[Rfam]
RNA sequence: CCCCCUAAGGAGCGUUGCGACCGACUUUCUAUGUCGGCUAGGCUUAGGACGGUAUCAAACAUACAACGGCGCUCAGUCAUA
Dot-bracket structure: ...(((((............(((((.......)))))......))))).................................
The record is an 81-nucleotide sequence from Leucothrix pacifica, which matches "SAH (S-adenosyl-L-homocysteine) riboswitch aptamer" in Rfam.